About this RNA: The record is a 125-nucleotide sequence from Pediococcus cellicola, which matches "FMN riboswitch aptamer (RFN element)" in Rfam. The RFN element is a highly conserved domain that is found frequently in the 5'-untranslated regions of prokaryotic mRNAs that encode for flavin mononucleotide (FMN) biosynthesis and transport proteins. The family's consensus secondary structure is taken from published work. The match comes from Rfam's covariance-model search (93 bits).
RNA sequence: GUUCGUCUUCAGGGGCAGGGUGAAAUUCCCGACCGGUGGUUAUACAGUCCACGACCCAUCCGCGUGAUGGUUGAAUCGGUGAAAUGCCGAUACCGAUAGUUAAAGUCUAGAUAAAGAAGAUUGGG
Numbered sequence: 001g002u003u004c005g006u007c008u009u010c011a012g013g014g015g016c017a018g019g020g021u022g023a024a025a026u027u028c029c030c031g032a033c034c035g036g037u038g039g040u041u042a043u044a045c046a047g048u049c050c051a052c053g054a055c056c057c058a059u060c061c062g063c064g065u066g067a068u069g070g071u072u073g074a075a076u077c078g079g080u081g082a083a084a085u086g087c088c089g090a091u092a093c094c095g096a097u098a099g100u101u102a103a104a105g106u107c108u109a110g111a112u113a114a115a116g117a118a119g120a121u122u123g124g125g
Base pairs, nucleotide, nucleotide: 003123005121006120007119008118009117010116018030019029020028032106033105034095035094036052037051038050039049047093048092056070057069075091076090077089078088079087097109098108099107